[Rfam]
RNA sequence: AAGUCGGUAUCGAAUGUUGAACUGAACUGGUAGACUAGAAUGAUUAAAAAAAUACGACUUAUAUCCUUUAAGGAAUAAGAGCGGAGG
Numbered sequence: 001a002a003g004u005c006g007g008u009a010u011c012g013a014a015u016g017u018u019g020a021a022c023u024g025a026a027c028u029g030g031u032a033g034a035c036u037a038g039a040a041u042g043a044u045u046a047a048a049a050a051a052a053u054a055c056g057a058c059u060u061a062u063a064u065c066c067u068u069u070a071a072g073g074a075a076u077a078a079g080a081g082c083g084g085a086g087g
Stems, first nucleotide, its partner, number of pairs: 002028002004025005010020002055083002058079005064074003
A member of the RNA family "pan motif" from Anaerospora hongkongensis, 87 nucleotides long. The source organism's lineage runs through Bacteria, Bacillota, Negativicutes, Selenomonadales and Anaerospora. A search with the family's covariance model found it, with a score of 46 bits.